[Rfam]
RNA sequence: GGCGAUAAAUGGCCAUCGUAAUAAACCUUUCGGACCCGGGGGCGGUACCCGGCGUCUCCACCAACUUCUCCGGCGUUGGCCGGCCAAUGGGGACGAAAUAGGAUCGACGAGGGCGUAAAGGGUGUGUUUUCGCUCGGCAUGGCACUACCGUCAUCAGGCCAUCCUUAAUAGUUGCCAACGACAACUAUGCUGAGGCCCGUCUCGCUGCGUAA
Number, nucleotide and partner (000 for none) at each position: 001g134002g133003c132004g131005a130006u000007a000008a000009a000010u000011g000012g000013c000014c124015a123016u122017c121018g000019u000020a000021a000022u000023a000024a000025a000026c113027c112028u111029u000030u110031c109032g108033g000034a000035c000036c052037c051038g050039g049040g048041g000042g000043c000044g000045g000046u000047a000048c040049c039050c038051g037052g036053c095054g094055u093056c092057u091058c090059c089060a000061c000062c000063a000064a000065c000066u000067u000068c000069u000070c000071c000072g000073g000074c000075g000076u000077u000078g000079g000080c000081c000082g000083g000084c000085c000086a000087a000088u000089g059090g058091g057092g056093a055094c054095g053096a000097a000098a000099u000100a000101g000102g000103a000104u000105c000106g000107a000108c032109g031110a030111g028112g027113g026114c000115g000116u000117a000118a000119a000120g000121g017122g016123u015124g014125u000126g000127u000128u000129u000130u005131c004132g003133c002134u001135c150136g149137g148138c000139a000140u000141g000142g000143c000144a000145c000146u000147a000148c137149c136150g135151u000152c000153a000154u000155c000156a000157g000158g000159c000160c000161a000162u000163c000164c000165u000166u000167a000168a000169u000170a000171g000172u000173u000174g000175c000176c000177a000178a000179c000180g000181a000182c000183a000184a000185c000186u000187a000188u000189g000190c000191u000192g000193a000194g000195g000196c000197c000198c000199g000200u000201c000202u000203c000204g000205c000206u000207g000208c000209g000210u000211a000212a000